[Rfam]
RNA sequence: AUGUGUCCGGGGCGCUCCGCGUUCCCGGCCAAAGACAGGCACUGCGCCAUGGAACAAAGUGGCGCAAUUGGGCGUU
Numbered sequence: 001a002u003g004u005g006u007c008c009g010g011g012g013c014g015c016u017c018c019g020c021g022u023u024c025c026c027g028g029c030c031a032a033a034g035a036c037a038g039g040c041a042c043u044g045c046g047c048c049a050u051g052g053a054a055c056a057a058a059g060u061g062g063c064g065c066a067a068u069u070g071g072g073c074g075u076u
Stems, first nucleotide, its partner, number of pairs: 005029003009025007044065006050058001

This 76-nucleotide sequence from Streptomyces zagrosensis belongs to the Rfam family "nrdJ RNA".